[Rfam]
RNA: M-box riboswitch aptamer (ykoK leader)
RNA sequence: UAUCUGAUUUGUUAGGUGAGGCUUCUAUACAAACACAGGGUGCUGCCCAGAAACAUCGAGAGAUGCCAAUGGGUAAAACAUGAAUCGUCGAUUAAGGCUUUUCUGAACGCACCUAAAACUGAUUGCCAGUUUUUACGUUGUGUAGUGCUAAAGCUCAACGUUGAAUCUUGGC
Dot-bracket structure: .....((((((([.(((..(((..((((((((......(((((.(((((....((((....))))....))))).......(((..(((.....])))..))).....))))).((((((.......))))))....)))))))).)))...)))..))...))))).....